[Rfam]
RNA: KDPG-aldolase RNA
RNA sequence: GGUGCGGUCGGACAUCUGUAAUUCAUGCAGAUCCCUGUGGCAGGGGCGCGCUAUAUGAUUAAUGAUUGCCCAACGGCAUGACUGGAGA
Dot-bracket structure: ((((((.......(((((((.....)))))))..............))))))..............((((....))))..........